[Rfam]
Nucleotides: 308
Stems, first nucleotide, its partner, number of pairs: 002303009011293001013265007021040008045291003049288005054166004063199001067162005072086005087101001088099004102157002107155002109151002124139005170222004181212005192204004230247007
Number, partner (000 for none) and nucleotide at each position: 001000u002303a003302a004301g005300c006299a007298g008297a009296u010295c011293a012000g013265u014264c015263u016262u017261a018260u019259c020000g021040c022039u023038a024037g025036a026035g027034u028033u029000a030000c031000u032000a033028a034027a035026c036025u037024u038023u039022a040021g041000a042000g043000g044000a045291a046290a047289g048000u049288c050287c051286g052285g053284a054166c055165a056164c057163c058000a059000a060000a061000g062000a063199g064000u065000a066000a067162g068161u069160a070159u071158a072086g073085c074084g075083g076082a077000u078000a079000a080000c081000a082076u083075c084074c085073g086072u087101c088099c089098a090097g091096u092000g093000u094000a095000a096091a097090c098089u099088g100000a101087g102157g103156a104000c105000a106000a107155g108154u109151g110150c111000a112000a113000c114000a115000g116000a117000a118000a119000g120000a121000a122000u123000g124139u125138a126137c127136a128135g129000g130000u131000a132000a133000u134000g135128c136127u137126g138125u139124a140000g141000u142000g143000a144000a145000a146000u147000c148000a149000g150110g151109u152000a153000a154108a155107c156103u157102c158071u159070a160069u161068g162067c163057g164056g165055u166054g167000c168000a169000a170222u171221g172220c173219c174000a175000c176000g177000u178000a179000u180000a181212u182211u183210a184209g185208a186000g187000c188000u189000c190000g191000a192204g193203u194202g195201c196000u197000a198000c199063u200000c201195g202194c203193g204192c205000g206000a207000u208185u209184c210183u211182a212181a213000g214000g215000g216000g217000u218000a219173g220172g221171c222170a223000g224000a225000u226000a227000g228000a229000u230247u231246u232245u233244a234243u235242g236241a237000g238000u239000a240000a241236u242235c243234a244233u245232a246231a247230a248000c249000c250000u251000a252000g253000a254000u255000a256000a257000a258000u259019g260018a261017u262016a263015a264014g265013a266000a267000c268000u269000u270000u271000u272000u273000a274000a275000g276000u277000u278000a279000c280000a281000g282000a283000a284053u285052c286051c287050g288049g289047c290046u291045u292000a293011u294000u295010g296009a297008u298007c299006u300005g301004c302003u303002u304000u305000u306000u307000u308000a
Shown here is a 308-nucleotide sequence from Tenacibaculum sp. SZ-18, a member of the family "Bacterial RNase P class A". Pairs were carried over by alignment from the consensus structure, which is taken from published work. Rfam classes the family as a ribozyme. The source organism's lineage runs through Bacteria, Pseudomonadati, Bacteroidota, Flavobacteriia and Tenacibaculum.